[Rfam]
RNA sequence: GCGGGCGAUACGCCCAAUUCCCGCAUGGGGAGCCGGGGACCCGCCGGUGGCAAGCUCCGCACGCCACCACUGGGGUGAAUCCGAGUUCUUCGGUAGGGCUGCUCCGGCCCGAACCCGUCAGCUAACCCGGUAGGCGUCAACGAGAGGAGCU
Numbered sequence: 001g002c003g004g005g006c007g008a009u010a011c012g013c014c015c016a017a018u019u020c021c022c023g024c025a026u027g028g029g030g031a032g033c034c035g036g037g038g039a040c041c042c043g044c045c046g047g048u049g050g051c052a053a054g055c056u057c058c059g060c061a062c063g064c065c066a067c068c069a070c071u072g073g074g075g076u077g078a079a080u081c082c083g084a085g086u087u088c089u090u091c092g093g094u095a096g097g098g099c100u101g102c103u104c105c106g107g108c109c110c111g112a113a114c115c116c117g118u119c120a121g122c123u124a125a126c127c128c129g130g131u132a133g134g135c136g137u138c139a140a141c142g143a144g145a146g147g148a149g150c151u
Base pairs, nucleotide, nucleotide: 011136012135013134014133018031019030020029032131033130034129035128036127037126042072043071073116074115075114081093082092083091084090096110097109098108099107
The family of this 151-nucleotide RNA from Nonomuraea polychroma is "c-di-AMP riboswitch aptamer (ydaO/yuaA leader)". Rfam links the family to the GO terms cyclic-di-AMP binding and regulation of gene expression.